[Rfam]
RNA sequence: GAAAGGCUGUAGUAUCUAGCAGCUGGAUGCAGCGGUACUUCCGCAGUAUGCUGUAUCCCAAUUUGG
Numbered sequence: 001g002a003a004a005g006g007c008u009g010u011a012g013u014a015u016c017u018a019g020c021a022g023c024u025g026g027a028u029g030c031a032g033c034g035g036u037a038c039u040u041c042c043g044c045a046g047u048a049u050g051c052u053g054u055a056u057c058c059c060a061a062u063u064u065g066g
Stems, first nucleotide, its partner, number of pairs: 005024006025058010
The record is a 66-nucleotide sequence from Lachnoclostridium sp. An181, which matches "S4-Clostridia ribosomal protein leader" in Rfam. On this family, see Eckert and Weinberg, BMC Microbiol 2020: "Discovery of 20 novel ribosomal leader candidates in bacteria and archaea". Its Rfam clan is "Ribosomal Protein S4 Leader clan". It is annotated as a cis-regulatory leader.